[Rfam]
RNA sequence: GGGACGAUGGCUGCAAGGAAGUGCUUCGCGCACGGGCUAUUCCGACGA
Numbered sequence: 001g002g003g004a005c006g007a008u009g010g011c012u013g014c015a016a017g018g019a020a021g022u023g024c025u026u027c028g029c030g031c032a033c034g035g036g037c038u039a040u041u042c043c044g045a046c047g048a
Stems, first nucleotide, its partner, number of pairs: 008039005021033004
Rfam assigns this 48-nucleotide sequence to the family "ssnA RNA". The family's RNA type in Rfam is cis-regulatory element. It is one of the family's seed sequences.